[Rfam]
RNA: serC leader
RNA sequence: CCUCGGGACACCUCCCCCCAACGGGAGGCGCCCAUCUGUAAGGAUGGAGAUA
Numbered sequence: 001c002c003u004c005g006g007g008a009c010a011c012c013u014c015c016c017c018c019c020a021a022c023g024g025g026a027g028g029c030g031c032c033c034a035u036c037u038g039u040a041a042g043g044a045u046g047g048a049g050a051u052a
Stems, first nucleotide, its partner, number of pairs: 011028006032047006
Dot-bracket structure: ..........((((((......))))))...((((((....)))))).....